RNA sequence: AUACUUACCUGGACGGGGUCAAUUGGUGAUCAACAAGGCCCAUGGCCUAGGUUAGUGACCUCCAUUGCACUUUGGAGGGGUGCUCACCUAAGGUCUAUCCAAGUGGUGGAGCCUACAUCAUAAUUUGUGGUAGUGGGGGCCUGCGUUCGCACGGCCCCUAA
Numbered sequence: 001a002u003a004c005u006u007a008c009c010u011g012g013a014c015g016g017g018g019u020c021a022a023u024u025g026g027u028g029a030u031c032a033a034c035a036a037g038g039c040c041c042a043u044g045g046c047c048u049a050g051g052u053u054a055g056u057g058a059c060c061u062c063c064a065u066u067g068c069a070c071u072u073u074g075g076a077g078g079g080g081u082g083c084u085c086a087c088c089u090a091a092g093g094u095c096u097a098u099c100c101a102a103g104u105g106g107u108g109g110a111g112c113c114u115a116c117a118u119c120a121u122a123a124u125u126u127g128u129g130g131u132a133g134u135g136g137g138g139g140c141c142u143g144c145g146u147u148c149g150c151a152c153g154g155c156c157c158c159u160a161a
Base pairs, nucleotide, nucleotide: 012119013118015116016048017047018046019045020044021043023042025040026039027038049089050088051087053086055083056082057081059079060078061077062075063074091114092113093112094110095109096108098106099105134160135159136158137157138156142153143152145150
This 161-nucleotide sequence from Camellia sinensis belongs to the Rfam family "U1 spliceosomal RNA". The match comes from Rfam's covariance-model search (138 bits). Lineage of the source: Eukaryota > Streptophyta > Embryophyta > Euphyllophyta > Camellia sinensis. Rfam describes the family as follows. U1 is a small nuclear RNA (snRNA) component of the spliceosome (involved in pre-mRNA splicing). Its 5' end forms complementary base pairs with the 5' splice junction, thus defining the 5' donor site of an intron. There are significant differences in sequence and secondary structure between metazoan and yeast U1 snRNAs, the latter being much longer (568 nucleotides as compared to 164 nucleotides in human). The family's RNA type in Rfam is spliceosomal small nuclear RNA.